This 137-nucleotide sequence from Caenorhabditis elegans belongs to the Rfam family "Nematode snoRNA ceN125". The family's RNA type in Rfam is H/ACA-box small nucleolar RNA. Pairs were carried over by alignment from the consensus structure, which was predicted with RNAalifold. Lineage of the source: Eukaryota > Opisthokonta > Ecdysozoa > Rhabditomorpha > Caenorhabditis.

RNA sequence: CUCACCCACGGCAACAAAUUCCAAUUGUGUGUAACAUUCAAUGCAAUUGAGCCGACGCCGUGGGAAAUCACUUUCGUGGAACCAUUUGAUCCCACGCUCGUUACUGUUAAUGAUUGUGGUUUGCACGUGGUUUACAA
Numbered sequence: 001c002u003c004a005c006c007c008a009c010g011g012c013a014a015c016a017a018a019u020u021c022c023a024a025u026u027g028u029g030u031g032u033a034a035c036a037u038u039c040a041a042u043g044c045a046a047u048u049g050a051g052c053c054g055a056c057g058c059c060g061u062g063g064g065a066a067a068u069c070a071c072u073u074u075c076g077u078g079g080a081a082c083c084a085u086u087u088g089a090u091c092c093c094a095c096g097c098u099c100g101u102u103a104c105u106g107u108u109a110a111u112g113a114u115u116g117u118g119g120u121u122u123g124c125a126c127g128u129g130g131u132u133u134a135c136a137a
Stems, first nucleotide, its partner, number of pairs: 005064008022049009051056001079133001081131005087125002089122001092119004098113005
Dot-bracket structure: ....((((((((.........(((((((((..........))))))))).(....)))))))))..............(.(((((.(((..((((..(((((......)))))..))))..).)).))))).)....